[Rfam]
Small nucleolar RNA SNORA53: a 234-nucleotide RNA from Salmo salar. The family's RNA type in Rfam is H/ACA-box small nucleolar RNA. It scores 84 bits against the family's covariance model. Lineage of the source: Eukaryota > Eumetazoa > Gnathostomata > Osteoglossocephalai > Salmo.

RNA sequence: UGAACACUUCUUAGAUCCACCUCUGGAGGGUGCGCCUGUGCUGGUGCUGUCGUCUCCGAACGCUGCAGCUUCAGCCCAGAGGCUCUCAGCAGCUUUCUGGCUGUACAGUCGGAGGUGUUUUAGUCAUUGGUGUUGUAGAGCAGUCUACCUGCCUCCACAGCCCUCCUUCUGCACUGGCAACUCUGUUAUACUGAUGGGAAUCAACCAGUGCAGCUUGGCUGGGAGGUGGACAAC
Numbered sequence: 001u002g003a004a005c006a007c008u009u010c011u012u013a014g015a016u017c018c019a020c021c022u023c024u025g026g027a028g029g030g031u032g033c034g035c036c037u038g039u040g041c042u043g044g045u046g047c048u049g050u051c052g053u054c055u056c057c058g059a060a061c062g063c064u065g066c067a068g069c070u071u072c073a074g075c076c077c078a079g080a081g082g083c084u085c086u087c088a089g090c091a092g093c094u095u096u097c098u099g100g101c102u103g104u105a106c107a108g109u110c111g112g113a114g115g116u117g118u119u120u121u122a123g124u125c126a127u128u129g130g131u132g133u134u135g136u137a138g139a140g141c142a143g144u145c146u147a148c149c150u151g152c153c154u155c156c157a158c159a160g161c162c163c164u165c166c167u168u169c170u171g172c173a174c175u176g177g178c179a180a181c182u183c184u185g186u187u188a189u190a191c192u193g194a195u196g197g198g199a200a201u202c203a204a205c206c207a208g209u210g211c212a213g214c215u216u217g218g219c220u221g222g223g224a225g226g227u228g229g230a231c232a233a234c
Stems, first nucleotide, its partner, number of pairs: 003134006010123002013120002018117008026087005036079003040075004046069004052063001054062001089104006149229005156222001159220004170212008182194002